RNA sequence: AUCUUAUCCAGAGUGGCGGAGGGCGCAGGCCCUUUGAUGCCACAGCAACCGGUCGAAAACUCCCCAGAUUUCAAUUCUGGCUUUCGAUGCUGGUGCUAAUUCCUGCCCGGGCGACCGGGGAAGAUAAGAU
Numbered sequence: 001a002u003c004u005u006a007u008c009c010a011g012a013g014u015g016g017c018g019g020a021g022g023g024c025g026c027a028g029g030c031c032c033u034u035u036g037a038u039g040c041c042a043c044a045g046c047a048a049c050c051g052g053u054c055g056a057a058a059a060c061u062c063c064c065c066a067g068a069u070u071u072c073a074a075u076u077c078u079g080g081c082u083u084u085c086g087a088u089g090c091u092g093g094u095g096c097u098a099a100u101u102c103c104u105g106c107c108c109g110g111g112c113g114a115c116c117g118g119g120g121a122a123g124a125u126a127a128g129a130u
Stems, first nucleotide, its partner, number of pairs: 001130008013043005021032003026105004044097004049093002052088007101122001106119005
Dot-bracket structure: ((((((((....(((((...(((..[[[[)))......)))))((((.((.(((((((.......................)))))))...))))))...(]]]](((((....)))))..)))))))))
SAM riboswitch aptamer (S box leader): a 130-nucleotide RNA from Telmatocola sphagniphila. It scores 80 bits against the family's covariance model.